A member of the RNA family "Small nucleolar RNA SNORD19" from Salmo trutta, 75 nucleotides long. It is annotated as a C/D-box small nucleolar RNA. A search with the family's covariance model found it, with a score of 41 bits. Its Rfam clan is "SNORD19 clan". Lineage of the source: Eukaryota > Actinopteri > Osteoglossocephalai > Salmoniformes > Salmo.
RNA sequence: GGGAAAUGAGGAUAAUUAACGCAAUUCUUGAUUUUAAGUGAAGACUUCUAAUCCAACUCUGAUCCCACUGUUGAG
Numbered sequence: 001g002g003g004a005a006a007u008g009a010g011g012a013u014a015a016u017u018a019a020c021g022c023a024a025u026u027c028u029u030g031a032u033u034u035u036a037a038g039u040g041a042a043g044a045c046u047u048c049u050a051a052u053c054c055a056a057c058u059c060u061g062a063u064c065c066c067a068c069u070g071u072u073g074a075g
Base pairs, nucleotide, nucleotide: 001066002065003064004063